[Rfam]
A member of the RNA family "U5 spliceosomal RNA" from Mastacembelus armatus, 115 nucleotides long.
RNA sequence: CGCUCUUGUUUCUCUUCAAAUCGUAUAAGUCUUUCGCCUUUUACUAAAGAUUUCCGUGGAGAGGAACAGCAAGAGUUUAAGUGAAUUUUUUGAUGCCCGACUGUAUUGUGGGGCU
Numbered sequence: 001c002g003c004u005c006u007u008g009u010u011u012c013u014c015u016u017c018a019a020a021u022c023g024u025a026u027a028a029g030u031c032u033u034u035c036g037c038c039u040u041u042u043a044c045u046a047a048a049g050a051u052u053u054c055c056g057u058g059g060a061g062a063g064g065a066a067c068a069g070c071a072a073g074a075g076u077u078u079a080a081g082u083g084a085a086u087u088u089u090u091u092g093a094u095g096c097c098c099g100a101c102u103g104u105a106u107u108g109u110g111g112g113g114c115u
Base pairs, nucleotide, nucleotide: 003075004074005073006072008067009066010065011064012063013062014061015060016059017058018057027053028052029051030050031049032048033047034046093115095114096113097112098111100109
Pairs were carried over by alignment from the consensus structure, which is taken from published work.
Lineage of the source: Eukaryota > Eumetazoa > Teleostomi > Eurypterygia > Mastacembelus.